[Rfam]
RNA sequence: GGACUUUUCCCCGCGAUCCGAAACGCCUAUAUAGAACGCGCCGGCCGCAAGGUCGGCUAUGGCGAUAAACGGUCGAUGCAAUAAUCCAUUCGGACCCGGGGGCGGUACCCGGCGCCUCCACCCCAAGGCCUCGCAACCCGAGACCUUGCGGCGGGGGCGAAACAGGAUCGACGAGGGUGUAAAGAUCGAACUUUCGCUCGGCAUGGUACCGCCGUUAUCGGGCUAAAUUUAUAGUUGCCAACGACAACUAUGCGGAAGCCCGUCUCGCUGCUUAAUGCAGCGCGAUAGCUUCAAAUCAAGCCCUGCGGGUUCGCACUCGUAGGCGGGGUCCGGAGGCACCUGGCAACAGAAGCCUCCACU
Numbered sequence: 001g002g003a004c005u006u007u008u009c010c011c012c013g014c015g016a017u018c019c020g021a022a023a024c025g026c027c028u029a030u031a032u033a034g035a036a037c038g039c040g041c042c043g044g045c046c047g048c049a050a051g052g053u054c055g056g057c058u059a060u061g062g063c064g065a066u067a068a069a070c071g072g073u074c075g076a077u078g079c080a081a082u083a084a085u086c087c088a089u090u091c092g093g094a095c096c097c098g099g100g101g102g103c104g105g106u107a108c109c110c111g112g113c114g115c116c117u118c119c120a121c122c123c124c125a126a127g128g129c130c131u132c133g134c135a136a137c138c139c140g141a142g143a144c145c146u147u148g149c150g151g152c153g154g155g156g157g158c159g160a161a162a163c164a165g166g167a168u169c170g171a172c173g174a175g176g177g178u179g180u181a182a183a184g185a186u187c188g189a190a191c192u193u194u195c196g197c198u199c200g201g202c203a204u205g206g207u208a209c210c211g212c213c214g215u216u217a218u219c220g221g222g223c224u225a226a227a228u229u230u231a232u233a234g235u236u237g238c239c240a241a242c243g244a245c246a247a248c249u250a251u252g253c254g255g256a257a258g259c260c261c262g263u264c265u266c267g268c269u270g271c272u273u274a275a276u277g278c279a280g281c282g283c284g285a286u287a288g289c290u291u292c293a294a295a296u297c298a299a300g301c302c303c304u305g306c307g308g309g310u311u312c313g314c315a316c317u318c319g320u321a322g323g324c325g326g327g328g329u330c331c332g333g334a335g336g337c338a339c340c341u342g343g344c345a346a347c348a349g350a351a352g353c354c355u356c357c358a359c360u
Stems, first nucleotide, its partner, number of pairs: 040057007061198005071191001073189005086177002090174003096112005113159007199214004204225003209221002326341004332357006